Rfam assigns this 78-nucleotide RNA sequence from Serinicoccus hydrothermalis to the family "ZMP/ZTP riboswitch aptamer (pfl RNA motif)". The base pairs follow the family's consensus structure, which is taken from published work.
RNA sequence: CUGGCCGCACACGACUGGCGCGGGUGGGGAACCACCGGGGAGUGACGAUCGUGGGCAUCGCCCGCCUGGGUGCCCGCA
Numbered sequence: 001c002u003g004g005c006c007g008c009a010c011a012c013g014a015c016u017g018g019c020g021c022g023g024g025u026g027g028g029g030a031a032c033c034a035c036c037g038g039g040g041a042g043u044g045a046c047g048a049u050c051g052u053g054g055g056c057a058u059c060g061c062c063c064g065c066c067u068g069g070g071u072g073c074c075c076g077c078a
Base pairs, nucleotide, nucleotide: 003050004049006047007046010044011043012042015039016038017066018065019064020063024035025034026033027032055073056072057071058070059069

Background
Gene Ontology terms of the family: regulation of purine nucleotide biosynthetic process and one-carbon metabolic process. The match comes from Rfam's covariance-model search (42 bits). Taxonomically the source falls in Serinicoccus (Bacteria, Bacillati, Actinomycetes, Ornithinimicrobiaceae).